[Rfam]
RNA sequence: UCGUCUAAGCGCGACUGGCGCAUUGGGUGGGCUACCACCGGGGAGCGGAAAUGGCGGAGGCCGCGCGCCUGGGUCUUCGCA
Numbered sequence: 001u002c003g004u005c006u007a008a009g010c011g012c013g014a015c016u017g018g019c020g021c022a023u024u025g026g027g028u029g030g031g032c033u034a035c036c037a038c039c040g041g042g043g044a045g046c047g048g049a050a051a052u053g054g055c056g057g058a059g060g061c062c063g064c065g066c067g068c069c070u071g072g073g074u075c076u077u078c079g080c081a
Stems, first nucleotide, its partner, number of pairs: 004049002010047003015042002017069005027038004058076005